[Rfam]
RNA sequence: CCACAUGCGGUGCCGGGGCGAUAAAAGCUCUGAGUUUGUCAGUUUCAGAGUUUUAUUGCUCCGGCACCGUACGGG
Numbered sequence: 001c002c003a004c005a006u007g008c009g010g011u012g013c014c015g016g017g018g019c020g021a022u023a024a025a026a027g028c029u030c031u032g033a034g035u036u037u038g039u040c041a042g043u044u045u046c047a048g049a050g051u052u053u054u055a056u057u058g059c060u061c062c063g064g065c066a067c068c069g070u071a072c073g074g075g
Stems, first nucleotide, its partner, number of pairs: 001075002004073001006071002009068002012065006019058004024054010034043002